[Rfam]
Nucleotides: 104
Stems, first nucleotide, its partner, number of pairs: 007058006015048002020045002022042001023039006059077007079099001081102001085097003
Number, partner (000 for none) and nucleotide at each position: 001000c002000a003000a004000a005000a006000g007058g008057a009056a010055a011054a012053c013000u014000a015048g016047g017000g018000u019000u020045c021044c022042g023039g024038c025037u026036u027035u028034c029000g030000c031000c032000a033000a034028g035027a036026a037025a038024g039023u040000g041000u042022c043000u044021g045020g046000g047016c048015c049000a050000a051000g052000a053012g054011u055010u056009u057008u058007c059077g060076g061075u062074c063073u064072c065071g066000c067000a068000u069000a070000a071065c072064g073063a074062g075061g076060c077059u078000c079099c080000a081102c082000g083000g084000a085097g086096g087095g088000a089000u090000a091000a092000a093000a094000g095087c096086c097085c098000g099079g100000g101000a102081g103000a104000u
A member of the RNA family "Guanidine-I riboswitch aptamer" from Candidatus Nitrospira inopinata, 104 nucleotides long. It scores 94 bits against the family's covariance model. The pairing is the family consensus, mapped onto this sequence. About the family: This family represents a conserved RNA structure found upstream of the ykkC and yxkD genes in Bacillus subtilis and related genes in other bacteria. The family has 100 seed sequences and 1,509 matches in Rfam 15.1. The source organism's lineage runs through Bacteria, Pseudomonadati, Nitrospiria, Nitrospiraceae and Nitrospira.